RNA: ZMP/ZTP riboswitch aptamer (pfl RNA motif)
Organism: Cupriavidus sp. HPC(L)
RNA sequence: UCCACCUUGCGCGACUGGCGAAGUCAGUGGGUACUACCACGAGGAAGCGCAAGAUCUCUGGCGCCACGCCACCGGAAGCGGUCCGAUGCCAGGGCGCGAUGC
Numbered sequence: 001u002c003c004a005c006c007u008u009g010c011g012c013g014a015c016u017g018g019c020g021a022a023g024u025c026a027g028u029g030g031g032u033a034c035u036a037c038c039a040c041g042a043g044g045a046a047g048c049g050c051a052a053g054a055u056c057u058c059u060g061g062c063g064c065c066a067c068g069c070c071a072c073c074g075g076a077a078g079c080g081g082u083c084c085g086a087u088g089c090c091a092g093g094g095c096g097c098g099a100u101g102c
Base pairs, nucleotide, nucleotide: 004055006053007052008051009050010049011048012047015044016043027040028039029038030037061097062096063095064094065093